[Rfam]
RNA sequence: GGUGGCACAUUUGAGGCCAUAGCUUAAGUGCUUCCAGUGUGGCCCGUGGCAGAUUCCAAUGAAUCUGCAAAUUCUUCU
Number, nucleotide and partner (000 for none) at each position: 001g000002g000003u000004g000005g000006c000007a000008c000009a000010u000011u000012u000013g000014a000015g044016g043017c042018c041019a000020u000021a078022g077023c000024u000025u000026a073027a072028g040029u039030g038031c000032u000033u000034c000035c000036a000037g000038u030039g029040u028041g018042g017043c016044c015045c000046g000047u000048g000049g000050c067051a066052g065053a064054u063055u062056c061057c000058a000059a000060u000061g056062a055063a054064u053065c052066u051067g050068c000069a000070a000071a000072u027073u026074c000075u000076u000077c022078u021
Record summary:
Rfam assigns this 78-nucleotide sequence from Crocodylus porosus to the family "Mammalian CPEB3 ribozyme". It scores 39 bits against the family's covariance model. Gene Ontology term of the family: RNA nuclease activity.